[Rfam]
RNA sequence: ACACGAGAAAGGAGGUGGUCCGACAGAUGAUUUCUCAACGGACGCGUGAGGUGGUUGCGCGCUAGCGCGACUCGUUCAACGUCGGCCAUUUUCGUGGCGGACUCGGGACGAUCGCGGUGGUGAAUCCAACGCACACCGCCGCAGCCCGUGGGAGCGCGCAUCGUCCAGCGCGCACCCGGCGAUAAGCCGGAGCCCACGGGCUGUUCCAU
Numbered sequence: 001a002c003a004c005g006a007g008a009a010a011g012g013a014g015g016u017g018g019u020c021c022g023a024c025a026g027a028u029g030a031u032u033u034c035u036c037a038a039c040g041g042a043c044g045c046g047u048g049a050g051g052u053g054g055u056u057g058c059g060c061g062c063u064a065g066c067g068c069g070a071c072u073c074g075u076u077c078a079a080c081g082u083c084g085g086c087c088a089u090u091u092u093c094g095u096g097g098c099g100g101a102c103u104c105g106g107g108a109c110g111a112u113c114g115c116g117g118u119g120g121u122g123a124a125u126c127c128a129a130c131g132c133a134c135a136c137c138g139c140c141g142c143a144g145c146c147c148g149u150g151g152g153a154g155c156g157c158g159c160a161u162c163g164u165c166c167a168g169c170g171c172g173c174a175c176c177c178g179g180c181g182a183u184a185a186g187c188c189g190g191a192g193c194c195c196a197c198g199g200g201c202u203g204u205u206c207c208a209u
Base pairs, nucleotide, nucleotide: 015058016057017056018055019054060122061121062120063119064118066116067115068114069113070112073110074109075108076107077106140203141202144201145200146199147198148197149196150195151194152193154173155172156171157170158169159168
RNA: Actinobacteria sRNA Ms_IGR-5